[Rfam]
RNA sequence: AGAGUUCAACGCUGCAGCAGAAGCACUCGCAGUGUGGCCAUGUCAGAUUCCCAGGAAUCUGUGAAUUCUGCU
Numbered sequence: 001a002g003a004g005u006u007c008a009a010c011g012c013u014g015c016a017g018c019a020g021a022a023g024c025a026c027u028c029g030c031a032g033u034g035u036g037g038c039c040a041u042g043u044c045a046g047a048u049u050c051c052c053a054g055g056a057a058u059c060u061g062u063g064a065a066u067u068c069u070g071c072u
Stems, first nucleotide, its partner, number of pairs: 011038003016072007023035003044061007
Dot-bracket structure: ..........[[[..((((((((((.......)))]]].....(((((((....)))))))....)))))))
Annotation:
The record is a 72-nucleotide sequence from Crocodylus porosus, which matches "Mammalian CPEB3 ribozyme" in Rfam. The base pairs follow the family's consensus structure, which is taken from published work. The mammalian CPEB3 ribozyme is a self cleaving RNA located in the second intron of the CPEB3 gene which belongs to a family of genes regulating messenger RNA polyadenylation. This ribozyme is highly conserved and found only in mammals. The CPEB3 ribozyme is structurally and biochemically related to the human hepatitis delta virus (HDV) ribozyme and the HDV ribozyme is proposed to have arisen from the human transcriptome. There is currently only one other known self cleaving ribozyme in mammals, the CoTC motif. Its family is annotated with RNA nuclease activity in the Gene Ontology. The source organism's lineage runs through Eukaryota, Opisthokonta, Deuterostomia, Craniata and Crocodylus.